Small nucleolar RNA SNORA9: a 132-nucleotide sequence from Callithrix jacchus. From the family's description: ACA9 is a member of the H/ACA class of snoRNA that guide the sites of modification of uridines to pseudouridines. Its family is annotated with RNA processing and nucleolus in the Gene Ontology. A search with the family's covariance model found it, with a score of 122 bits. The organism belongs to Callithrix, within Eukaryota. By type it is an H/ACA-box small nucleolar RNA. Clan: SNORA9 clan.
RNA sequence: UGGCAAGCCUCCAGCGUGCUAGCAUCUGUGGUGACCUGUGCAUUCCUACACUGCUUGCCAGAACAGUAUUGAAAUAGUUCGAGGGCUUGUCCUGCUCCAUCCAGAGCAAGGUUACCGAAAUUUCAGAUAAUU
Numbered sequence: 001u002g003g004c005a006a007g008c009c010u011c012c013a014g015c016g017u018g019c020u021a022g023c024a025u026c027u028g029u030g031g032u033g034a035c036c037u038g039u040g041c042a043u044u045c046c047u048a049c050a051c052u053g054c055u056u057g058c059c060a061g062a063a064c065a066g067u068a069u070u071g072a073a074a075u076a077g078u079u080c081g082a083g084g085g086c087u088u089g090u091c092c093u094g095c096u097c098c099a100u101c102c103a104g105a106g107c108a109a110g111g112u113u114a115c116c117g118a119a120a121u122u123u124c125a126g127a128u129a130a131u132u
Stems, first nucleotide, its partner, number of pairs: 003058006017042003022036001025034002070125005086110005092104003